[Rfam]
RNA sequence: CUGGGCUAUGGAGACAUGUACCCUCAGACCUGGUCAGGCAUGCUGGUUGGUGCUCUGUGCGCAUUGUCAGGCGUGUUAACCAUCGCCAUGCCGGUUCCUGUCAUUGUCAAUAAU
Numbered sequence: 001c002u003g004g005g006c007u008a009u010g011g012a013g014a015c016a017u018g019u020a021c022c023c024u025c026a027g028a029c030c031u032g033g034u035c036a037g038g039c040a041u042g043c044u045g046g047u048u049g050g051u052g053c054u055c056u057g058u059g060c061g062c063a064u065u066g067u068c069a070g071g072c073g074u075g076u077u078a079a080c081c082a083u084c085g086c087c088a089u090g091c092c093g094g095u096u097c098c099u100g101u102c103a104u105u106g107u108c109a110a111u112a113a114u
Base pairs, nucleotide, nucleotide: 002113004111008107009106010105011104013102014101015100016099018097020095021094037077038076039075040074050062051061
RNA: Potassium channel RNA editing signal